[Rfam]
RNA sequence: GUUCAGGUUCAAGAAUGGCCCCCGUGAUGUUGUCAGGUGCAUACCUGCAACGUGCGGGGGUUUUCU
Numbered sequence: 001g002u003u004c005a006g007g008u009u010c011a012a013g014a015a016u017g018g019c020c021c022c023c024g025u026g027a028u029g030u031u032g033u034c035a036g037g038u039g040c041a042u043a044c045c046u047g048c049a050a051c052g053u054g055c056g057g058g059g060g061u062u063u064u065c066u
Base pairs, nucleotide, nucleotide: 017062018061019060020059021058022057023056024055025054028052029051030050031049032048036044

The record is a 66-nucleotide RNA from Escherichia coli, which matches "rdlD antitoxin" in Rfam.
Rfam's curators put it in the seed alignment.
Rfam classes the family as an antitoxin RNA.
The base pairs follow the family's consensus structure.
The source organism's lineage runs through Bacteria, Pseudomonadati, Enterobacterales, Escherichia and Escherichia coli O139:H28.
The literature on the family includes a 2002 paper in Mol Microbiol by Kawano et al., "Molecular characterization of long direct repeat (LDR) sequences expressing a stable mRNA encoding for a 35-amino-acid cell-killing peptide and a cis-encoded small antisense RNA in Escherichia coli".